[Rfam]
RNA sequence: UCCGGCGUUCUACCGCCGGUACCCUACCGGGCCGUGCGUCGGGGGUAACCCCGAGGUGCGAAGCGUCCGGGACACGGUAGCCUCCGUCGAUCAGACGGGCGACCAAACCGCGAGGGGAGGUCGCGACUGCCAGCCUCGAGGCGGUCGGGAGC
Number, nucleotide and partner (000 for none) at each position: 001u000002c019003c018004g017005g016006c015007g014008u000009u000010c000011u000012a000013c000014c007015g006016c005017c004018g003019g002020u000021a000022c000023c000024c000025u000026a000027c000028c069029g068030g067031g066032c065033c060034g059035u058036g057037c056038g000039u054040c053041g052042g051043g050044g049045g000046u000047a000048a000049c044050c043051c042052c041053g040054a039055g000056g037057u036058g035059c034060g033061a000062a000063g000064c000065g032066u031067c030068c029069g028070g000071g000072a000073c000074a000075c000076g000077g000078u000079a000080g000081c000082c000083u099084c098085c097086g096087u095088c000089g000090a000091u000092c000093a000094g000095a087096c086097g085098g084099g083100c000101g122102a121103c120104c119105a000106a000107a000108c115109c114110g000111c000112g000113a000114g109115g108116g000117g000118a000119g104120g103121u102122c101123g000124c000125g000126a145127c144128u143129g142130c141131c140132a000133g000134c000135c000136u000137c000138g000139a000140g131141g130142c129143g128144g127145u126146c000147g000148g000149g000150a000151g000152c000
Background: A member of the RNA family "Group II catalytic intron D1-D4-7" from Thiocapsa imhoffii, 152 nucleotides long. Group II introns are found in rRNA, tRNA and mRNA of organelles in fungi, plants and protists, and also in mRNA in bacteria. The family has 244 seed sequences and 1,296 matches in Rfam 15.1. Gene Ontology term of the family: Group II intron splicing. Pairs were carried over by alignment from the consensus structure. It scores 111 bits against the family's covariance model. NCBI's taxonomy places the organism under Bacteria, Pseudomonadota, Gammaproteobacteria, Chromatiales, Thiocapsa.